Rfam assigns this 80-nucleotide RNA from Myotis brandtii to the family "mir-574 microRNA precursor family". A search with the family's covariance model found it, with a score of 82 bits. Pairs were carried over by alignment from the consensus structure, which was predicted with RNAalifold. On this family, see Lui et al., Cancer Res 2007: "Patterns of known and novel small RNAs in human cervical cancer".
RNA sequence: AGGCCUGCAGAGAGAAGCAGGGUCUGAUCUGUAGCCUCCGUGGCAGCUGUUGAUCAGCCCCGCCUCUCUCUUUCUCUCUG
Numbered sequence: 001a002g003g004c005c006u007g008c009a010g011a012g013a014g015a016a017g018c019a020g021g022g023u024c025u026g027a028u029c030u031g032u033a034g035c036c037u038c039c040g041u042g043g044c045a046g047c048u049g050u051u052g053a054u055c056a057g058c059c060c061c062g063c064c065u066c067u068c069u070c071u072u073u074c075u076c077u078c079u080g
Base pairs, nucleotide, nucleotide: 009071010070011069012068013067014066015065017063018062020060022059024057025056026055027054028053029052032049033048034047035046